About this RNA
The record is a 137-nucleotide sequence from Cysteiniphilum litorale, which matches "Bacterial antisense RNA HPnc0260" in Rfam. The organism belongs to Cysteiniphilum, within Bacteria.

[Rfam]
RNA sequence: AGGAUAUAAUUGAUCCUUUUUGUAACCUUAUAAAAAUAAUGCAGCUGUUAUUUUAAUUUUUAAACUAUUGGAAAUUCUUACAAAAAAGGCUUUAAAGAUGGUGGUCGCUACUGGACUCGAACCAGUGACCCCUACCA
Number, nucleotide and partner (000 for none) at each position: 001a000002g000003g000004a000005u000006a000007u000008a000009a000010u000011u000012g000013a000014u000015c000016c000017u000018u000019u000020u000021u043022g042023u041024a000025a000026c000027c000028u039029u038030a037031u000032a000033a000034a000035a000036a000037u030038a029039a028040u000041g023042c022043a021044g000045c000046u000047g000048u000049u000050a000051u000052u000053u000054u000055a000056a000057u000058u000059u072060u071061u000062a000063a000064a000065c000066u000067a000068u000069u000070g000071g060072a059073a000074a000075u000076u000077c000078u000079u000080a000081c000082a000083a000084a000085a000086a000087a000088g000089g000090c000091u000092u000093u000094a000095a000096a000097g000098a000099u134100g133101g132102u000103g130104g129105u000106c000107g000108c127109u000110a000111c125112u124113g123114g122115a000116c000117u000118c000119g000120a000121a000122c114123c113124a112125g111126u000127g108128a000129c104130c103131c000132c101133u100134a099135c000136c000137a000